[Rfam]
A member of the RNA family "Small nucleolar RNA Z266" from Colocasia esculenta, 94 nucleotides long. A search with the family's covariance model found it, with a score of 70 bits. A reference for the family is Chen et al. (2003), "The high diversity of snoRNAs in plants: identification and comparative study of 120 snoRNA genes from Oryza sativa", Nucleic Acids Res.

RNA sequence: AUGUGGCUGGCUUGAUGAAUCAAUUAGAUGUGUGAAGUGAAACUUCUCUCAUGAACUAAGCUUUUGAGGCAUAACGUAUUCUGACCAGCCAUAA
Numbered sequence: 001a002u003g004u005g006g007c008u009g010g011c012u013u014g015a016u017g018a019a020u021c022a023a024u025u026a027g028a029u030g031u032g033u034g035a036a037g038u039g040a041a042a043c044u045u046c047u048c049u050c051a052u053g054a055a056c057u058a059a060g061c062u063u064u065u066g067a068g069g070c071a072u073a074a075c076g077u078a079u080u081c082u083g084a085c086c087a088g089c090c091a092u093a094a
Base pairs, nucleotide, nucleotide: 002093003092004091005090006089007088008087009086010085
Dot-bracket structure: .(((((((((..........................................................................))))))))).
Rfam 15.1 lists 719 matches to the family in 213 species. Lineage of the source: Eukaryota > Streptophytina > Mesangiospermae > Araceae > Colocasia.